[Rfam]
RNA: Cyanobacterial functional RNA 8/9
RNA sequence: UUUAAAGUCUAUUUACUCAUAAACCUAGAAUACGUGAAUUCGGGGAUUUUUCUCGAUAAUUUCAGUCCCUAUUGUCGCUAGUAAUUAUAAAGCGAAGUCUUAUCAGACUAAUUGAUUGAACUUAAAUUUUCGAAUAAUCCCAUUCUCAGGAAUACGCUUCCUAUAUUUUGGAAUUUGCUAAAUUUCAGGCGGACUAUCAAUCAUUUAGAUUGCCUCCGAACUCAAC
Numbered sequence: 001u002u003u004a005a006a007g008u009c010u011a012u013u014u015a016c017u018c019a020u021a022a023a024c025c026u027a028g029a030a031u032a033c034g035u036g037a038a039u040u041c042g043g044g045g046a047u048u049u050u051u052c053u054c055g056a057u058a059a060u061u062u063c064a065g066u067c068c069c070u071a072u073u074g075u076c077g078c079u080a081g082u083a084a085u086u087a088u089a090a091a092g093c094g095a096a097g098u099c100u101u102a103u104c105a106g107a108c109u110a111a112u113u114g115a116u117u118g119a120a121c122u123u124a125a126a127u128u129u130u131c132g133a134a135u136a137a138u139c140c141c142a143u144u145c146u147c148a149g150g151a152a153u154a155c156g157c158u159u160c161c162u163a164u165a166u167u168u169u170g171g172a173a174u175u176u177g178c179u180a181a182a183u184u185u186c187a188g189g190c191g192g193a194c195u196a197u198c199a200a201u202c203a204u205u206u207a208g209a210u211u212g213c214c215u216c217c218g219a220a221c222u223c224a225a226c
Stems, first nucleotide, its partner, number of pairs: 003028001005026001007024002035224003039220002044217003065194004072188003079180006085172002089168002091158004096109005112149004123137001125135001127133002198212005